Background: Rfam assigns this 77-nucleotide RNA from Carassius auratus to the family "Small nucleolar RNA SNORD83". Gene Ontology terms of the family: nucleolus and RNA processing. Rfam 15.1 lists 1,393 matches to the family in 644 species. The family's RNA type in Rfam is C/D-box small nucleolar RNA. The match comes from Rfam's covariance-model search (54 bits). Taxonomically the source falls in Carassius (Eukaryota, Teleostomi, Euteleostomi, Actinopteri).
RNA sequence: GCCACAUGAUGAGAUGUAGAUUGCAUUAGCACUCAGUGCAAAGAUGACCUGCUAUCUAUCACCCAUGGCUGAUGGCU
Numbered sequence: 001g002c003c004a005c006a007u008g009a010u011g012a013g014a015u016g017u018a019g020a021u022u023g024c025a026u027u028a029g030c031a032c033u034c035a036g037u038g039c040a041a042a043g044a045u046g047a048c049c050u051g052c053u054a055u056c057u058a059u060c061a062c063c064c065a066u067g068g069c070u071g072a073u074g075g076c077u
Stems, first nucleotide, its partner, number of pairs: 001076004029039004